[Rfam]
A member of the RNA family "ZMP/ZTP riboswitch aptamer (pfl RNA motif)" from Halanaerobacter jeridensis, 86 nucleotides long. The base pairs follow the family's consensus structure, which is taken from published work. A reference for the family is Tran et al. (2020), "Parallel Discovery Strategies Provide a Basis for Riboswitch Ligand Design", Cell Chem Biol. The match comes from Rfam's covariance-model search (56 bits).
RNA sequence: UAGGGGUUGUGUAACUGGCGGAUCCAUGGAAUUAACCAUGAGGAAGCACGACCUGAUAUAUAUGAUCGCCCGCCUGGAUGACGUAU
Numbered sequence: 001u002a003g004g005g006g007u008u009g010u011g012u013a014a015c016u017g018g019c020g021g022a023u024c025c026a027u028g029g030a031a032u033u034a035a036c037c038a039u040g041a042g043g044a045a046g047c048a049c050g051a052c053c054u055g056a057u058a059u060a061u062a063u064g065a066u067c068g069c070c071c072g073c074c075u076g077g078a079u080g081a082c083g084u085a086u
Stems, first nucleotide, its partner, number of pairs: 004054009015043002017074005026039004063081001065079003
Dot-bracket structure: ...(((((((((..(([[[[[....((((......))))..))..)))))))))........(.(((..]]]]]..))).).....